[Rfam]
RNA sequence: CCGUAAUCUCAAAUUCCUCUACUUUUGGUCCCUCAUUUUACGAGUCAUGUAUGCAGAUUCUGCUGACGUGGUGGAAUAAGGGACCAAAAGUGGAAGAAUAUGAAAUUACAG
Numbered sequence: 001c002c003g004u005a006a007u008c009u010c011a012a013a014u015u016c017c018u019c020u021a022c023u024u025u026u027g028g029u030c031c032c033u034c035a036u037u038u039u040a041c042g043a044g045u046c047a048u049g050u051a052u053g054c055a056g057a058u059u060c061u062g063c064u065g066a067c068g069u070g071g072u073g074g075a076a077u078a079a080g081g082g083a084c085c086a087a088a089a090g091u092g093g094a095a096g097a098a099u100a101u102g103a104a105a106u107u108a109c110a111g
Base pairs, nucleotide, nucleotide: 004108005107006106007105009103010102011101013099014098015097016096018094019093020092021091022090023089024088025087026086027085028084029083030082031081032080033079035077036076037075038074039073044072045071046070047069048068049067050066053063054062055061056060
MIR5284 microRNA precursor family: a 111-nucleotide RNA sequence from Medicago truncatula. Gene Ontology terms of the family: RISC complex and miRNA-mediated post-transcriptional gene silencing. It scores 108 bits against the family's covariance model.